[Rfam]
RNA sequence: GUCGGGAGUGGACCAAUACAAGACCCGCAAGGGAAAUACGUCCGGCCUUUACUGUUUGAGGUUUCUUAACUCCCGGCGCCUUAGC
Numbered sequence: 001g002u003c004g005g006g007a008g009u010g011g012a013c014c015a016a017u018a019c020a021a022g023a024c025c026c027g028c029a030a031g032g033g034a035a036a037u038a039c040g041u042c043c044g045g046c047c048u049u050u051a052c053u054g055u056u057u058g059a060g061g062u063u064u065c066u067u068a069a070c071u072c073c074c075g076g077c078g079c080c081u082u083a084g085c
Stems, first nucleotide, its partner, number of pairs: 001077008010043004015037001024033003044063006